[Rfam]
RNA sequence: CCAAAGGCUCUUUUAAGAGCCACCCAUUUUCUCUUAAGAAGAGCUG
Numbered sequence: 001c002c003a004a005a006g007g008c009u010c011u012u013u014u015a016a017g018a019g020c021c022a023c024c025c026a027u028u029u030u031c032u033c034u035u036a037a038g039a040a041g042a043g044c045u046g
Stems, first nucleotide, its partner, number of pairs: 006021006
About this RNA:
Rfam assigns this 46-nucleotide sequence from Cepphus grylle to the family "Histone 3' UTR stem-loop". NCBI's taxonomy places the organism under Eukaryota, Sarcopterygii, Coelurosauria, Neoaves, Cepphus. The literature on the family includes a 1995 paper in Nucleic Acids Res by Williams and Marzluff, "The sequence of the stem and flanking sequences at the 3' end of histone mRNA are critical determinants for the binding of the stem-loop binding protein". The match comes from Rfam's covariance-model search (41 bits).